Shown here is a 124-nucleotide RNA sequence from Elizabethkingia meningoseptica, a member of the family "FMN riboswitch aptamer (RFN element)".
The match comes from Rfam's covariance-model search (122 bits).
The base pairs follow the family's consensus structure, which is taken from published work.
[Rfam]
RNA sequence: AGUUUUCUUCGGGGCAGGGUGAAAUUCCCUACCGGCGGUUACAGUCCGCGACUCCUUUUUAUAAAGGACUGAUUUGGUGGAAUUCCAAAACCGACAGUUAAAGUCUGGAUGGGAGAAGAAAAUG
Dot-bracket structure: ..((((((((......(((.......))).[[((((((.....[[))))...((............))....(((((.......)))))]])).(((.....]]))).......))))))))..